The record is an 87-nucleotide RNA sequence from Caenorhabditis nigoni, which matches "mir-54 microRNA precursor family" in Rfam. It scores 74 bits against the family's covariance model. The source organism's lineage runs through Eukaryota, Opisthokonta, Eumetazoa, Rhabditoidea and Caenorhabditis.
[Rfam]
RNA sequence: GCUGAUCUUUGACUCGAACCUGGACAUCGUUUUGUACACGAAUUUCUCCUUGUACCCGUGAUUCCAUGUAUCGAGUCAACGAUCGCC
Numbered sequence: 001g002c003u004g005a006u007c008u009u010u011g012a013c014u015c016g017a018a019c020c021u022g023g024a025c026a027u028c029g030u031u032u033u034g035u036a037c038a039c040g041a042a043u044u045u046c047u048c049c050u051u052g053u054a055c056c057c058g059u060g061a062u063u064c065c066a067u068g069u070a071u072c073g074a075g076u077c078a079a080c081g082a083u084c085g086c087c
Stems, first nucleotide, its partner, number of pairs: 003085005009079006016072002019068001021066004031058001034055005